[Rfam]
RNA sequence: CUUGUGGACUGUUAUAGCGAAUGGGAGUAGUUUUUAUUCUUCAAAGAAUGAAGACAAAACCAGACAGGGUGAAGCAAGAA
Numbered sequence: 001c002u003u004g005u006g007g008a009c010u011g012u013u014a015u016a017g018c019g020a021a022u023g024g025g026a027g028u029a030g031u032u033u034u035u036a037u038u039c040u041u042c043a044a045a046g047a048a049u050g051a052a053g054a055c056a057a058a059a060c061c062a063g064a065c066a067g068g069g070u071g072a073a074g075c076a077a078g079a080a
Stems, first nucleotide, its partner, number of pairs: 001078005009067005022062003030055003035050005
The family of this 80-nucleotide sequence is "RAGATH-18 RNA". Actinobacteria, Firmicutes, Fusobacteria, Thermotogae (1 example). It is one of the family's seed sequences. By type it is a small RNA.